[Rfam]
RNA sequence: CUCUAGCAUUGCCGGUGCCCGCAUGGGCUGAGAUUAUACGGUCGGAACUUGAUCUAGUUAAUACUAGCGAAAAGAAAAUGCUUUUGGUAUGAG
Numbered sequence: 001c002u003c004u005a006g007c008a009u010u011g012c013c014g015g016u017g018c019c020c021g022c023a024u025g026g027g028c029u030g031a032g033a034u035u036a037u038a039c040g041g042u043c044g045g046a047a048c049u050u051g052a053u054c055u056a057g058u059u060a061a062u063a064c065u066a067g068c069g070a071a072a073a074g075a076a077a078a079u080g081c082u083u084u085u086g087g088u089a090u091g092a093g
Stems, first nucleotide, its partner, number of pairs: 006081005011042004016036001017028004048074003054067004